[Rfam]
RNA sequence: CGUAGAGGAACGUCAACUAGAACCGUCACAUCCUGUGACGACAUUGACGUGACCAACAUCCCGUUGG
Numbered sequence: 001c002g003u004a005g006a007g008g009a010a011c012g013u014c015a016a017c018u019a020g021a022a023c024c025g026u027c028a029c030a031u032c033c034u035g036u037g038a039c040g041a042c043a044u045u046g047a048c049g050u051g052a053c054c055a056a057c058a059u060c061c062c063g064u065u066g067g
Stems, first nucleotide, its partner, number of pairs: 011049006025039005053067005
The family of this 67-nucleotide RNA from Radiobacillus deserti is "Bacillaceae-1 RNA".
The base pairs follow the family's consensus structure, which is taken from published work.
The match comes from Rfam's covariance-model search (60 bits).
NCBI's taxonomy places the organism under Bacteria, Bacillati, Bacillota, Bacilli, Radiobacillus.
Rfam 15.1 lists 5,721 matches to the family in 247 species.